The family of this 118-nucleotide RNA sequence from Erwinia mallotivora is "Insertion sequence IS1222 ribosomal frameshifting element".
Rfam describes the family as follows. This family represents the insertion sequence IS1222 ribosomal frameshifting element.
Rfam classes the family as a frameshift element.
The base pairs follow the family's consensus structure, which is taken from published work.
Its family is annotated with translational frameshifting in the Gene Ontology.
The literature on the family includes a 2004 paper in J Bacteriol by Mejlhede et al., "-1 frameshifting at a CGA AAG hexanucleotide site is required for transposition of insertion sequence IS1222".
[Rfam]
RNA sequence: GGCACUUCAGGUGGCUCUGGGGCGAAAGUACUGACGACAGACCAGAAGCGGUAAGCCGUUGAGUUUAUGUAUGAUGCGACCGGUCUGCCGCAACGUCGUGCCUGUCAACCUGCCGUUA
Numbered sequence: 001g002g003c004a005c006u007u008c009a010g011g012u013g014g015c016u017c018u019g020g021g022g023c024g025a026a027a028g029u030a031c032u033g034a035c036g037a038c039a040g041a042c043c044a045g046a047a048g049c050g051g052u053a054a055g056c057c058g059u060u061g062a063g064u065u066u067a068u069g070u071a072u073g074a075u076g077c078g079a080c081c082g083g084u085c086u087g088c089c090g091c092a093a094c095g096u097c098g099u100g101c102c103u104g105u106c107a108a109c110c111u112g113c114c115g116u117u118a
Base pairs, nucleotide, nucleotide: 035090036089038087039086040085041084042083043082048059049058050057051056063080064079065078